[Rfam]
RNA: c-di-AMP riboswitch aptamer (ydaO/yuaA leader)
Organism: Microbispora bryophytorum
RNA sequence: GCGCCGGUGACGCCGAGUCCGCGCCGGCAAGGAGGCGCGGAGCCGGGGAACCAAUCGACCUUCGGUGAAGGUCCGGGGUGAAUCGGCGCGCCAGCGCCGUAGGGCGACUUCCCUGCCCGAAUCCGUCAGCUAACCCGGUAGGCGCAAGCGGAAGACCCU
Numbered sequence: 001g002c003g004c005c006g007g008u009g010a011c012g013c014c015g016a017g018u019c020c021g022c023g024c025c026g027g028c029a030a031g032g033a034g035g036c037g038c039g040g041a042g043c044c045g046g047g048g049a050a051c052c053a054a055u056c057g058a059c060c061u062u063c064g065g066u067g068a069a070g071g072u073c074c075g076g077g078g079u080g081a082a083u084c085g086g087c088g089c090g091c092c093a094g095c096g097c098c099g100u101a102g103g104g105c106g107a108c109u110u111c112c113c114u115g116c117c118c119g120a121a122u123c124c125g126u127c128a129g130c131u132a133a134c135c136c137g138g139u140a141g142g143c144g145c146a147a148g149c150g151g152a153a154g155a156c157c158c159u
Base pairs, nucleotide, nucleotide: 011144012143013142014141018041019040020039021038022037023036024035025034042139043138044137045136046135047134052075076124077123078122084099085098086097087096102118103117104116105115